[Rfam]
RNA: Histone 3' UTR stem-loop
Nucleotides: 046
Base pairs, nucleotide, nucleotide: 006021007020008019009018010017011016
Number, partner (000 for none) and nucleotide at each position: 001000c002000c003000a004000a005000c006021g007020g008019c009018u010017c011016u012000u013000u014000u015000c016011a017010g018009a019008g020007c021006c022000a023000c024000c025000c026000a027000u028000u029000u030000g031000u032000u033000c034000c035000c036000g037000a038000a039000a040000a041000g042000c043000g044000c045000u046000g